[Rfam]
RNA sequence: UUAAAUAUUAGAGGUCGCAAAGGCGAAGAAUCUUGAGUGGAGCUGUGAGGGCGUUGAUGCGAAGAGGCGGCGUCCUUUGCCGAAGGAGCUAGUGUGCUCAUAACGCUAGCUUUUGGGCUGACUGGUUAAAUCCGUCAGACUGUCUUUUGGUGGAAAUUGCUUAUCAGUUGUCAUCAAAAGGUGAGCUAAUCAAAUC
Numbered sequence: 001u002u003a004a005a006u007a008u009u010a011g012a013g014g015u016c017g018c019a020a021a022g023g024c025g026a027a028g029a030a031u032c033u034u035g036a037g038u039g040g041a042g043c044u045g046u047g048a049g050g051g052c053g054u055u056g057a058u059g060c061g062a063a064g065a066g067g068c069g070g071c072g073u074c075c076u077u078u079g080c081c082g083a084a085g086g087a088g089c090u091a092g093u094g095u096g097c098u099c100a101u102a103a104c105g106c107u108a109g110c111u112u113u114u115g116g117g118c119u120g121a122c123u124g125g126u127u128a129a130a131u132c133c134g135u136c137a138g139a140c141u142g143u144c145u146u147u148u149g150g151u152g153g154a155a156a157u158u159g160c161u162u163a164u165c166a167g168u169u170g171u172c173a174u175c176a177a178a179a180g181g182u183g184a185g186c187u188a189a190u191c192a193a194a195u196c
Stems, first nucleotide, its partner, number of pairs: 007190005017080006023073003033064002037060003084114012115141002118138005124132002143181011

The record is a 196-nucleotide RNA from Pseudolactococcus insecticola, which matches "Lysine riboswitch aptamer" in Rfam.
A search with the family's covariance model found it, with a score of 68 bits.
Taxonomically the source falls in Pseudolactococcus (Bacteria, Bacillati, Bacillota, Bacilli).
Riboswitches are metabolite binding domains within certain messenger RNAs that serve as precision sensors for their corresponding targets.